[Rfam]
A member of the RNA family "Bacterial RNase P class A" from Wohlfahrtiimonas chitiniclastica, 349 nucleotides long. The source organism's lineage runs through Bacteria, Pseudomonadati, Gammaproteobacteria, Ignatzschineriaceae and Wohlfahrtiimonas chitiniclastica. Rfam classes the family as a ribozyme. Pairs were carried over by alignment from the consensus structure, which is taken from published work.
RNA sequence: UCAGUUGAUUGGAUUAUCGCGAGUGAGCAAUCAUUCGAGGAAAGUCCGGGCUCCACGGAUCAAAGUGCUAGAUAACGUCUAGACGGCGCGAGCCGAUGGAAAGUGCUGAAGAAAUUAAACCGCCUAAAGACGCAAGUCUCGGUAAGGGUGAGAAGGUGCGGUAAGAGCGCACCGUACACAAGGUGACUUCGUGUAGCUGAGGUAAACCCCACUUGGAGCAAGACCAAAUAGGAACACUGAUAGCGUGAUCCGCGCUGUGUUCGGGUAGGUUGCUUGAGGGUGGAAGUGAUUCCACUCCUAGAUGAAUGAUAAUUCUCGACAGAACCCGGCUUAUAGAUCGACUGAUACA
Numbered sequence: 001u002c003a004g005u006u007g008a009u010u011g012g013a014u015u016a017u018c019g020c021g022a023g024u025g026a027g028c029a030a031u032c033a034u035u036c037g038a039g040g041a042a043a044g045u046c047c048g049g050g051c052u053c054c055a056c057g058g059a060u061c062a063a064a065g066u067g068c069u070a071g072a073u074a075a076c077g078u079c080u081a082g083a084c085g086g087c088g089c090g091a092g093c094c095g096a097u098g099g100a101a102a103g104u105g106c107u108g109a110a111g112a113a114a115u116u117a118a119a120c121c122g123c124c125u126a127a128a129g130a131c132g133c134a135a136g137u138c139u140c141g142g143u144a145a146g147g148g149u150g151a152g153a154a155g156g157u158g159c160g161g162u163a164a165g166a167g168c169g170c171a172c173c174g175u176a177c178a179c180a181a182g183g184u185g186a187c188u189u190c191g192u193g194u195a196g197c198u199g200a201g202g203u204a205a206a207c208c209c210c211a212c213u214u215g216g217a218g219c220a221a222g223a224c225c226a227a228a229u230a231g232g233a234a235c236a237c238u239g240a241u242a243g244c245g246u247g248a249u250c251c252g253c254g255c256u257g258u259g260u261u262c263g264g265g266u267a268g269g270u271u272g273c274u275u276g277a278g279g280g281u282g283g284a285a286g287u288g289a290u291u292c293c294a295c296u297c298c299u300a301g302a303u304g305a306a307u308g309a310u311a312a313u314u315c316u317c318g319a320c321a322g323a324a325c326c327c328g329g330c331u332u333a334u335a336g337a338u339c340g341a342c343u344g345a346u347a348c349a
Stems, first nucleotide, its partner, number of pairs: 001345010011334001012314007020037007042332003046329005051218004058251001063214005068082005083097001084095004098209002103207002105203003120147002122143003128139004155173006174197001175195005180189003222271004232262006242256005278297008